[Rfam]
RNA sequence: AAUAUGGCUAGGCUGGGGGGUUAGGCGUCCCUUGUAAUCUGAAACCGCCUUUAUGCAGAAGCCGAAAACUUGGGAGAGGUAUGUAUAUUUACCAUUCAUUCCUGAGCUUUGUGGUGAUAUUUCGUCCUAUGGGGUAUAGGUGGUAAGGGAGCUCCAUCUGUAGGGAUGGAGAAAACUCUUUUUAUUUGCCGAACCCCGCCAGGUCCGGAAGGGAGCAACGGUAGGCGGAACUCCGACGCCCAUAGGGUAGCGGAAUUGAACAGAACUUAGGGGCAAUGGAUGGUAAAUUGCAUAUCCAUCCCAAGGAAGCCACUUU
Numbered sequence: 001a002a003u004a005u006g007g008c009u010a011g012g013c014u015g016g017g018g019g020g021u022u023a024g025g026c027g028u029c030c031c032u033u034g035u036a037a038u039c040u041g042a043a044a045c046c047g048c049c050u051u052u053a054u055g056c057a058g059a060a061g062c063c064g065a066a067a068a069c070u071u072g073g074g075a076g077a078g079g080u081a082u083g084u085a086u087a088u089u090u091a092c093c094a095u096u097c098a099u100u101c102c103u104g105a106g107c108u109u110u111g112u113g114g115u116g117a118u119a120u121u122u123c124g125u126c127c128u129a130u131g132g133g134g135u136a137u138a139g140g141u142g143g144u145a146a147g148g149g150a151g152c153u154c155c156a157u158c159u160g161u162a163g164g165g166a167u168g169g170a171g172a173a174a175a176c177u178c179u180u181u182u183u184a185u186u187u188g189c190c191g192a193a194c195c196c197c198g199c200c201a202g203g204u205c206c207g208g209a210a211g212g213g214a215g216c217a218a219c220g221g222u223a224g225g226c227g228g229a230a231c232u233c234c235g236a237c238g239c240c241c242a243u244a245g246g247g248u249a250g251c252g253g254a255a256u257u258g259a260a261c262a263g264a265a266c267u268u269a270g271g272g273g274c275a276a277u278g279g280a281u282g283g284u285a286a287a288u289u290g291c292a293u294a295u296c297c298a299u300c301c302c303a304a305g306g307a308a309g310c311c312a313c314u315u316u
Base pairs, nucleotide, nucleotide: 001316002315005312006311007310008309009308011063012062013061014060015033016032017031018030019029020028021027038059039058040057041056043054069305070304071303072302073301074300075299078296079295080294081293083291084290085289087288088287089286090285091284092283093282094281095280096279097278098277099273100272101271102270103269104268105267106266108264109263110262111261112260119256120255121254122253123252124251125250126246127245128244129243130242131241132240133239134237135236139234140233142231143182145180146179147178148177149176152171153170154169155168156167157166158165159164185229186228187227188226189225190224196221197220198219204213205212206211